Record summary:
Shown here is a 56-nucleotide RNA, a member of the family "nadA riboswitch". On this family, see Huang et al., RNA 2020: "Structure and ligand binding of the ADP-binding domain of the NAD(+) riboswitch". The family's RNA type in Rfam is small RNA. It is one of the family's seed sequences.
[Rfam]
RNA sequence: GGCUUCAACAUCCCCGCCGGUUGGGCGUCGUAAGGUGCAGCGAACCGACUGGAGCC
Numbered sequence: 001g002g003c004u005u006c007a008a009c010a011u012c013c014c015c016g017c018c019g020g021u022u023g024g025g026c027g028u029c030g031u032a033a034g035g036u037g038c039a040g041c042g043a044a045c046c047g048a049c050u051g052g053a054g055c056c
Stems, first nucleotide, its partner, number of pairs: 001056007013042001014040001016049001018047005023041001025038005